Shown here is a 74-nucleotide sequence from Celeribacter halophilus, a member of the family "tRNA". The family's RNA type in Rfam is transfer RNA. Pairs were carried over by alignment from the consensus structure, which is taken from published work.
[Rfam]
Nucleotides: 074
Base pairs, nucleotide, nucleotide: 001073002072003071004070005069006068007067010026011025012024013023028044029043030042031041032040050066051065052064053063054062
Number, partner (000 for none) and nucleotide at each position: 001073g002072c003071g004070g005069u006068u007067g008000u009000a010026g011025c012024u013023c014000a015000g016000a017000u018000g019000g020000u021000u022000a023013g024012a025011g026010u027000g028044c029043c030042g031041g032040c033000c034000u035000g036000u037000c038000a039000c040032g041031c042030c043029g044028g045000a046000g047000g048000u049000c050066g051065c052064g053063g054062g055000u056000u057000c058000g059000a060000g061000c062054c063053c064052c065051g066050u067007c068006a069005a070004c071003c072002g073001c074000g
The match comes from Rfam's covariance-model search (70 bits). From the family's description: Transfer RNA (tRNA) molecules are approximately 80 nucleotides in length.